Shown here is a 149-nucleotide RNA from Carlito syrichta, a member of the family "Small nucleolar RNA SNORA9". NCBI's taxonomy places the organism under Eukaryota, Eumetazoa, Mammalia, Tarsiidae, Carlito. From the family's description: ACA9 is a member of the H/ACA class of snoRNA that guide the sites of modification of uridines to pseudouridines. Clan: SNORA9 clan. It is annotated as an H/ACA-box small nucleolar RNA.

RNA sequence: CGGCAUCCCAAAGUGCUGGGAUUACAGACUGAGUCACCAAGCCCGGCUGACCCUAUGUAUUUCUACAGUGCUUGCCAGAAGAGUUUUGACACAGUUUGAGGCCUUGCCCUGCUCCAUCCAGAGCAAGGUUAUAGAAAUUUUAGACAAUU
Dot-bracket structure: .(((.........(((..((.((.........................)).))...)))..........)))..............(((.(..........((((((.(((.......))).)))))).........).))).......